[Rfam]
RNA sequence: AUGAAAAACCCGUUAAGCUCAGGAGGGAUAGCGCCGUAGAUGAUCUUUUCUGAUAGGUCACGGUUAGAUCUCUGUUGCGCUAUCCAUCCUGAGUUUCAUGGGUUUUUUCG
Number, nucleotide and partner (000 for none) at each position: 001a000002u000003g000004a000005a000006a000007a000008a000009c000010c101011c000012g000013u000014u000015a000016a095017g094018c093019u092020c091021a090022g089023g088024a087025g000026g085027g084028a083029u082030a081031g080032c079033g078034c077035c000036g000037u000038a000039g000040a000041u000042g000043a000044u000045c000046u000047u000048u000049u000050c000051u000052g000053a000054u000055a000056g000057g000058u000059c000060a000061c000062g000063g000064u000065u000066a000067g000068a000069u000070c000071u000072c000073u000074g000075u000076u000077g034078c033079g032080c031081u030082a029083u028084c027085c026086a000087u024088c023089c022090u021091g020092a019093g018094u017095u016096u000097c000098a000099u000100g000101g010102g000103u000104u000105u000106u000107u000108u000109c000110g000
Source information
The record is a 110-nucleotide sequence from Striga hermonthica, which matches "MIR390 microRNA precursor family" in Rfam. The match comes from Rfam's covariance-model search (82 bits). Rfam 15.1 lists 649 matches to the family in 206 species. Gene Ontology terms of the family: miRNA-mediated post-transcriptional gene silencing and RISC complex. The source organism's lineage runs through Eukaryota, Streptophyta, asterids, lamiids and Striga.